[Rfam]
Nucleotides: 271
Stems, first nucleotide, its partner, number of pairs: 006029003012024003035045002086126002088123001093118001096112005132152001134150002138147003157200003160196002208248001210246004217235005258271001259268001261266001
Number, partner (000 for none) and nucleotide at each position: 001000u002000g003000g004000c005000g006029c007028c008027c009000a010000a011000c012024g013023u014022g015000g016000c017000u018000u019000g020000g021000a022014u023013a024012c025000u026000g027008g028007g029006g030000a031000c032000a033000a034000c035045g036044u037000g038000a039000g040000g041000g042000a043000c044036a045035c046000a047000a048000c049000g050000a051000a052000a053000g054000a055000a056000g057000a058000a059000g060000g061000g062000g063000u064000g065000c066000a067000c068000a069000c070000c071000c072000g073000a074000u075000c076000a077000a078000a079000c080000a081000a082000u083000a084000g085000u086126u087125c088123g089000g090000a091000g092000a093118c094000g095000u096112c097111g098110c099109g100108g101000u102000a103000g104000c105000c106000u107000g108100c109099u110098g111097u112096g113000a114000c115000u116000g117000a118093g119000c120000u121000g122000a123088c124000a125087g126086g127000u128000a129000a130000g131000u132152u133000g134150g135149u136000c137000g138147u139146c140145a141000a142000u143000c144000a145140u146139g147138g148000g149135g150134c151000a152132a153000g154000a155000a156000u157200u158199a159198a160196g161195u162000c163000a164000g165000c166000a167000u168000c169000a170000a171000a172000a173000g174000u175000a176000u177000g178000u179000g180000a181000u182000g183000c184000a185000a186000u187000u188000a189000a190000g191000a192000g193000a194000a195161g196160c197000g198159u199158u200157a201000c202000a203000g204000g205000c206000a207000a208248g209000a210246g211245g212244a213243g214000u215000a216000a217235a218234a219233g220232u221231u222000a223000c224000a225000a226000c227000u228000a229000a230000a231221g232220a233219u234218u235217u236000a237000u238000u239000u240000c241000a242000u243213u244212u245211c246210u247000c248208u249000g250000a251000u252000u253000u254000u255000a256000u257000a258271a259268g260000a261266c262000a263000u264000c265000u266261g267000c268259c269000c270000a271258u
Shown here is a 271-nucleotide RNA sequence from Nannospalax galili, a member of the family "Mason-Pfizer monkey virus packaging signal". Rfam describes the family as follows. This family represents a group of sequences that are related to the Mason-Pfizer monkey virus (MPMV) packaging signal. The packaging signal is located in the 5' UTR and is required for specific RNA encapsidation. Taxonomically the source falls in Nannospalax (Eukaryota, Craniata, Teleostomi, Dipnotetrapodomorpha).